[Rfam]
RNA sequence: ACAAAUGCGCAGAUGGGAAAAAGUACCACACGAUCCCCACUGUUCAGAGAGCUGCCGUCUGGUGCAAGGCAGUCAGCGUUUCGUGCGGAAAAUCAUCCCGGAGCAGCCUGCCCAACGGGUGUAAAACUCCUGUAAGCAGCGCCGGUUGCAGCCGUUACCGUGCAGGGCUUUGUUGGAAGCCCGUGAGAGGGUGUGCACAGCACGCCAACGAGAGUGGUACCGCAGAGAGCUUGAUGUUACAAGGUCUUUGUCUCUUGA
Numbered sequence: 001a002c003a004a005a006u007g008c009g010c011a012g013a014u015g016g017g018a019a020a021a022a023g024u025a026c027c028a029c030a031c032g033a034u035c036c037c038c039a040c041u042g043u044u045c046a047g048a049g050a051g052c053u054g055c056c057g058u059c060u061g062g063u064g065c066a067a068g069g070c071a072g073u074c075a076g077c078g079u080u081u082c083g084u085g086c087g088g089a090a091a092a093u094c095a096u097c098c099c100g101g102a103g104c105a106g107c108c109u110g111c112c113c114a115a116c117g118g119g120u121g122u123a124a125a126a127c128u129c130c131u132g133u134a135a136g137c138a139g140c141g142c143c144g145g146u147u148g149c150a151g152c153c154g155u156u157a158c159c160g161u162g163c164a165g166g167g168c169u170u171u172g173u174u175g176g177a178a179g180c181c182c183g184u185g186a187g188a189g190g191g192u193g194u195g196c197a198c199a200g201c202a203c204g205c206c207a208a209c210g211a212g213a214g215u216g217g218u219a220c221c222g223c224a225g226a227g228a229g230c231u232u233g234a235u236g237u238u239a240c241a242a243g244g245u246c247u248u249u250g251u252c253u254c255u256u257g258a
Stems, first nucleotide, its partner, number of pairs: 007104002015099004026087001029085004040076003051073006107141001108139004143154003190206007211255004222251007
A member of the RNA family "T-box leader" from Faecalibacterium sp. OM04-11BH, 258 nucleotides long. The match comes from Rfam's covariance-model search (106 bits).